Rfam assigns this 146-nucleotide sequence from Enterovibrio coralii to the family "RtT RNA".
The family's RNA type in Rfam is cis-regulatory element.
It scores 56 bits against the family's covariance model.
About the family: This family represents a bacterial cis-regulatory element known as RtT RNA. The exact function of RtT is unknown although it is thought that it may be involved in changing the cellular response in relation to amino acid starvation.
The family has 57 seed sequences and 651 matches in Rfam 15.1.
A reference for the family is Bosl and Kersten (1991), "A novel RNA product of the tyrT operon of Escherichia coli", Nucleic Acids Res.
Pairs were carried over by alignment from the consensus structure, which is taken from published work.
[Rfam]
RNA sequence: AAUAGACCUUCGGAGAUAGGGAUGCAGAACCCUAGACCCUAGGUUCAGCCGAGCGAAGCGAGACAACGUUGCCCGGCGAAGCAGAAAAGCAACGGCCUAAAGGGCAAGGGAGUGAAACGACCGAGUAAAUCCCCAUCCCUCAGCCA
Numbered sequence: 001a002a003u004a005g006a007c008c009u010u011c012g013g014a015g016a017u018a019g020g021g022a023u024g025c026a027g028a029a030c031c032c033u034a035g036a037c038c039c040u041a042g043g044u045u046c047a048g049c050c051g052a053g054c055g056a057a058g059c060g061a062g063a064c065a066a067c068g069u070u071g072c073c074c075g076g077c078g079a080a081g082c083a084g085a086a087a088a089g090c091a092a093c094g095g096c097c098u099a100a101a102g103g104g105c106a107a108g109g110g111a112g113u114g115a116a117a118c119g120a121c122c123g124a125g126u127a128a129a130u131c132c133c134c135a136u137c138c139c140u141c142a143g144c145c146a
Stems, first nucleotide, its partner, number of pairs: 015137003019133003023129001035105001037104002044101002047098001050060002067094006